RNA sequence: UCGCACAGUGCACCCCGGGCUUCUCCGAUCAUUUGAUUUGAAGAGGAAUGCCCCAAUGCAUGUGCGACAACACCAGCCGUCUAGUGUUGCAGCUUAGCCGAUUUCCACGGUUAUGCUGUGUCAAAUCGACCGCCACAUCU
Numbered sequence: 001u002c003g004c005a006c007a008g009u010g011c012a013c014c015c016c017g018g019g020c021u022u023c024u025c026c027g028a029u030c031a032u033u034u035g036a037u038u039u040g041a042a043g044a045g046g047a048a049u050g051c052c053c054c055a056a057u058g059c060a061u062g063u064g065c066g067a068c069a070a071c072a073c074c075a076g077c078c079g080u081c082u083a084g085u086g087u088u089g090c091a092g093c094u095u096a097g098c099c100g101a102u103u104u105c106c107a108c109g110g111u112u113a114u115g116c117u118g119u120g121u122c123a124a125a126u127c128g129a130c131c132g133c134c135a136c137a138u139c140u
Stems, first nucleotide, its partner, number of pairs: 003065005010059002017053004022047002024044002076133002079130003085123002088120006096111001098109001

A member of the RNA family "small nucleolar RNA snoR134" from Kalanchoe fedtschenkoi, 140 nucleotides long. Taxonomically the source falls in Kalanchoe (Eukaryota, Streptophyta, Magnoliopsida, Saxifragales). Gene Ontology terms of the family: nucleolus and RNA processing.